Overview: Small nucleolar RNA SNORD90: a 112-nucleotide sequence from Pampusana beccarii. By type it is a C/D-box small nucleolar RNA.
RNA sequence: AGUUCACUUUUUUGUGUCUUAUGAUGAAGCUUCAUAGGGCAGAUUCUGAGCUGAGAGACGAACUUUCUCUCCACUGAUACUCUCUAUGCCAUCUGAAGACACUGUGGCAUUU
Numbered sequence: 001a002g003u004u005c006a007c008u009u010u011u012u013u014g015u016g017u018c019u020u021a022u023g024a025u026g027a028a029g030c031u032u033c034a035u036a037g038g039g040c041a042g043a044u045u046c047u048g049a050g051c052u053g054a055g056a057g058a059c060g061a062a063c064u065u066u067c068u069c070u071c072c073a074c075u076g077a078u079a080c081u082c083u084c085u086a087u088g089c090c091a092u093c094u095g096a097a098g099a100c101a102c103u104g105u106g107g108c109a110u111u112u
Stems, first nucleotide, its partner, number of pairs: 012104001014102006029092001033088003037083003042078001045077002048074001050072001053069006
Rfam's curators write: snoRNA HBII-295 belongs to the family of C/D snoRNAs. The source organism's lineage runs through Eukaryota, Coelurosauria, Columbimorphae, Columbidae and Pampusana. It scores 46 bits against the family's covariance model.